[Rfam]
RNA sequence: CUGAGUGUAGCGCAGCUUGGCUAGCGCACUUGCAUGGGGUGCAAGGGGUCGGAGGUUCAAAUCCUCUCACUCAGA
Number, nucleotide and partner (000 for none) at each position: 001c074002u073003g072004a071005g070006u069007g068008u000009a000010g027011c026012g025013c024014a000015g000016c000017u000018u000019g000020g000021c000022u000023a000024g013025c012026g011027c010028a000029c045030u044031u043032g042033c041034a000035u000036g000037g000038g000039g000040u000041g033042c032043a031044a030045g029046g000047g000048g000049u000050c000051g067052g066053a065054g064055g063056u000057u000058c000059a000060a000061a000062u000063c055064c054065u053066c052067u051068c007069a006070c005071u004072c003073a002074g001075a000
A member of the RNA family "tRNA" from Parachlamydia sp. AcF125, 75 nucleotides long. It scores 57 bits against the family's covariance model. From the family's description: Transfer RNA (tRNA) molecules are approximately 80 nucleotides in length.